[Rfam]
Nucleotides: 136
Stems, first nucleotide, its partner, number of pairs: 004059005016042008074129004086116002091110003095106003
Number, partner (000 for none) and nucleotide at each position: 001000u002000g003000a004059c005058a006057u007056g008055u009000g010000g011000a012000a013000a014000g015000g016042u017041c018040u019039g020038c021037u022036c023035c024000u025000c026000a027000u028000u029000c030000c031000u032000u033000u034000a035023g036022g037021a038020g039019c040018a041017g042016g043000a044000a045000u046000a047000c048000a049000u050000c051000u052000a053000u054000a055008a056007c057006a058005u059004g060000c061000u062000a063000c064000a065000c066000u067000a068000u069000a070000a071000a072000a073000a074129g075128g076127g077126g078000u079000u080000u081000u082000c083000a084000g085000g086116a087115c088000u089000g090000a091110c092109a093108a094000c095106u096105u097104u098000a099000c100000a101000g102000u103000a104097g105096a106095g107000u108093u109092u110091g111000a112000g113000u114000g115087g116086u117000a118000g119000u120000a121000u122000a123000u124000u125000u126077c127076u128075c129074c130000u131000a132000c133000a134000u135000u136000a